[Rfam]
The record is a 62-nucleotide RNA from Brenneria rubrifaciens, which matches "Pseudomonas sRNA P26" in Rfam. The literature on the family includes a 2006 paper in Nucleic Acids Res by Livny et al., "Identification of 17 Pseudomonas aeruginosa sRNAs and prediction of sRNA-encoding genes in 10 diverse pathogens using the bioinformatic tool sRNAPredict2". Pairs were carried over by alignment from the consensus structure, which was predicted with RNAalifold. The family's RNA type in Rfam is non-coding RNA gene. A search with the family's covariance model found it, with a score of 73 bits. This small RNA (sRNA) was computationally identified in the genome of the opportunistic pathogen Pseudomonas aeruginosa and its expression verified by northern blot analysis. P26 is conserved across many Gammaproteobacteria species and appears to be consistently located between the DNA directed RNA polymerase (beta subunit) and 50S ribosomal protein L7/L12 genes.
RNA sequence: CCCUUUCAGGUUACAGCCUGAUUUAUUAGGCUGAUGGCUGGUGACUUUUUAGUCACCAGCCU
Numbered sequence: 001c002c003c004u005u006u007c008a009g010g011u012u013a014c015a016g017c018c019u020g021a022u023u024u025a026u027u028a029g030g031c032u033g034a035u036g037g038c039u040g041g042u043g044a045c046u047u048u049u050u051a052g053u054c055a056c057c058a059g060c061c062u
Stems, first nucleotide, its partner, number of pairs: 014033005036061010
Dot-bracket structure: .............(((((..........)))))..((((((((((......)))))))))).